[Rfam]
Rfam assigns this 151-nucleotide RNA from Paenibacillus stellifer to the family "Ribosomal protein L10 leader". By type it is a cis-regulatory leader. Rfam describes the family as follows. This family is a putative r-protein leader autoregulatory structure found in B. subtilis and other low-GC Gram-positive bacteria.
RNA sequence: UAACAUCGAAUAUGCUUACCGUAGACAGUAGGUGCCGAAAGGCUUAAUUUCCUACCGAGGUGUUCUGAUAGAAACAUAAGGAACGGUUAUGCCGUCAGCCUAUCGUUUUAUCAAGCCUUCGCAAAUCUGCGGAGGCUUUUCUAUUGCGCGU
Numbered sequence: 001u002a003a004c005a006u007c008g009a010a011u012a013u014g015c016u017u018a019c020c021g022u023a024g025a026c027a028g029u030a031g032g033u034g035c036c037g038a039a040a041g042g043c044u045u046a047a048u049u050u051c052c053u054a055c056c057g058a059g060g061u062g063u064u065c066u067g068a069u070a071g072a073a074a075c076a077u078a079a080g081g082a083a084c085g086g087u088u089a090u091g092c093c094g095u096c097a098g099c100c101u102a103u104c105g106u107u108u109u110a111u112c113a114a115g116c117c118u119u120c121g122c123a124a125a126u127c128u129g130c131g132g133a134g135g136c137u138u139u140u141c142u143a144u145u146g147c148g149c150g151u
Stems, first nucleotide, its partner, number of pairs: 028055005034043003115136009
Dot-bracket structure: ...........................(((((.(((....))).......)))))...........................................................(((((((((....)))))))))...............